[Rfam]
RNA sequence: AGAACCCGCGUGGGAGAGACCUCGACGAACUGGUCGAGGCGCCGAAGGGGCAAGCUCCCGCACACUCUCAGGCAGCAAGACCACCCGGGGUAG
Numbered sequence: 001a002g003a004a005c006c007c008g009c010g011u012g013g014g015a016g017a018g019a020c021c022u023c024g025a026c027g028a029a030c031u032g033g034u035c036g037a038g039g040c041g042c043c044g045a046a047g048g049g050g051c052a053a054g055c056u057c058c059c060g061c062a063c064a065c066u067c068u069c070a071g072g073c074a075g076c077a078a079g080a081c082c083a084c085c086c087g088g089g090g091u092a093g
Stems, first nucleotide, its partner, number of pairs: 006088003010084004020039006041073003044069002048067003054061002

Source information
Rfam assigns this 93-nucleotide RNA from Lentzea albidocapillata to the family "Glycine riboswitch aptamer". The organism belongs to Lentzea, within Bacteria. A search with the family's covariance model found it, with a score of 63 bits. This family represents the bacterial glycine riboswitch.